[Rfam]
The record is a 76-nucleotide RNA sequence from Quiscalus mexicanus, which matches "mir-196 microRNA precursor family" in Rfam. The match comes from Rfam's covariance-model search (63 bits). Lineage of the source: Eukaryota > Vertebrata > Teleostomi > Icteridae > Quiscalus. The literature on the family includes a 2003 paper in RNA by Lagos-Quintana et al., "New microRNAs from mouse and human".
RNA sequence: CCUGUGGAUUAGGUAGUUUCAUGUUGUUGGGCUCGUGCUUUCAAACACAACGACAUCCAACUGCCCGGUUCACUCC
Number, nucleotide and partner (000 for none) at each position: 001c000002c000003u000004g073005u072006g071007g070008a069009u068010u067011a000012g065013g064014u063015a062016g061017u060018u059019u000020c000021a000022u055023g054024u053025u052026g051027u050028u049029g048030g000031g046032c000033u000034c000035g000036u000037g000038c000039u000040u000041u000042c000043a000044a000045a000046c031047a000048c029049a028050a027051c026052g025053a024054c023055a022056u000057c000058c000059a018060a017061c016062u015063g014064c013065c012066c000067g010068g009069u008070u007071c006072a005073c004074u000075c000076c000